TPP riboswitch aptamer (THI element): a 111-nucleotide sequence from Lentibacillus cibarius. The family's consensus secondary structure is taken from published work.
[Rfam]
RNA sequence: GAUUUCCACUAGGGGUGCCUUUCUAAAAGGCUGAGAUCAAAGUGCUUGACUUUGGGACUCUUUGAACUUGACACGGUUAAUACCGGCGCAGGGAAGUGGUGGGACGAGGUC
Dot-bracket structure: .....(((((((((.((((((.....)))))......(((((.......))))))..)))).....((((...(((......)))...))))..)))))............